[Rfam]
RNA: freshwater-2 RNA
RNA sequence: UCUUACAUCGGGUAAGAGACUUAUGCGGAUAACCACCGCGUAGCCAGUAAAGUUGGCAUUGGACUCCUUUAAAGGAGAAACAAAAUG
Numbered sequence: 001u002c003u004u005a006c007a008u009c010g011g012g013u014a015a016g017a018g019a020c021u022u023a024u025g026c027g028g029a030u031a032a033c034c035a036c037c038g039c040g041u042a043g044c045c046a047g048u049a050a051a052g053u054u055g056g057c058a059u060u061g062g063a064c065u066c067c068u069u070u071a072a073a074g075g076a077g078a079a080a081c082a083a084a085a086u087g
Base pairs, nucleotide, nucleotide: 001017002016003015004014005013006012022042023041024040025039026038027037028036043057044056045055046054